The family of this 149-nucleotide RNA from Azospira restricta is "radC RNA". It is annotated as a cis-regulatory element.
RNA sequence: ACGCUCCCGCCAUGUUUCGCUGACUCCCGUCAGCAACAUGCCCAGGCAGCCACGAUCUUCAAGGCUGCGAAGCGGUUCCGACCGCGUUGAUCGAACGAGUUCGCACCGGCAUCCAUGCGCGAACGGCCAUCGGUUCUCGAUGGCGAUGC
Numbered sequence: 001a002c003g004c005u006c007c008c009g010c011c012a013u014g015u016u017u018c019g020c021u022g023a024c025u026c027c028c029g030u031c032a033g034c035a036a037c038a039u040g041c042c043c044a045g046g047c048a049g050c051c052a053c054g055a056u057c058u059u060c061a062a063g064g065c066u067g068c069g070a071a072g073c074g075g076u077u078c079c080g081a082c083c084g085c086g087u088u089g090a091u092c093g094a095a096c097g098a099g100u101u102c103g104c105a106c107c108g109g110c111a112u113c114c115a116u117g118c119g120c121g122a123a124c125g126g127c128c129a130u131c132g133g134u135u136c137u138c139g140a141u142g143g144c145g146a147u148g149c
Stems, first nucleotide, its partner, number of pairs: 011040004016035001019034006046068006054092004069088002072085004119149003126144008
Dot-bracket structure: ..........((((.(..((((((....))))))).)))).....((((((..[[[[.....))))))((.((((......)))).))]]]]..........................(((....((((((((...))))))))..)))